[Rfam]
RNA sequence: GUCAACUACCCCUCCUUAACUGAAGCGAAUGCUUCAGUUUGAGGAAGGAGCUUGUUUUCAUAAAGCAAGUUCCUGGUUGACCAGACCACUGGAUAUGGGUUAUAUAUGUUAAUAAUAAUAGAAAAAAGUCCAGUAAACGAUACCGGAGAAUACAACAGUAGUCACCCUGGGAUGCCGCCUCAGUCCCUUGCUCUGAGAAUGCAGUCUAAACAGUUCUGGCGGAGUAGGAACAGUGGCUGUACUUUUAAACCUCUGGUACUCCGGUCGAGAGGAAGUCGGA
Numbered sequence: 001g002u003c004a005a006c007u008a009c010c011c012c013u014c015c016u017u018a019a020c021u022g023a024a025g026c027g028a029a030u031g032c033u034u035c036a037g038u039u040u041g042a043g044g045a046a047g048g049a050g051c052u053u054g055u056u057u058u059c060a061u062a063a064a065g066c067a068a069g070u071u072c073c074u075g076g077u078u079g080a081c082c083a084g085a086c087c088a089c090u091g092g093a094u095a096u097g098g099g100u101u102a103u104a105u106a107u108g109u110u111a112a113u114a115a116u117a118a119u120a121g122a123a124a125a126a127a128g129u130c131c132a133g134u135a136a137a138c139g140a141u142a143c144c145g146g147a148g149a150a151u152a153c154a155a156c157a158g159u160a161g162u163c164a165c166c167c168u169g170g171g172a173u174g175c176c177g178c179c180u181c182a183g184u185c186c187c188u189u190g191c192u193c194u195g196a197g198a199a200u201g202c203a204g205u206c207u208a209a210a211c212a213g214u215u216c217u218g219g220c221g222g223a224g225u226a227g228g229a230a231c232a233g234u235g236g237c238u239g240u241a242c243u244u245u246u247a248a249a250c251c252u253c254u255g256g257u258a259c260u261c262c263g264g265u266c267g268a269g270a271g272g273a274a275g276u277c278g279g280a
Stems, first nucleotide, its partner, number of pairs: 001081008010050001012047002015044002051069008084266004089133005139260001141258008162196002166190001169187005174276002178272004198243001200241007210234002213231005219225001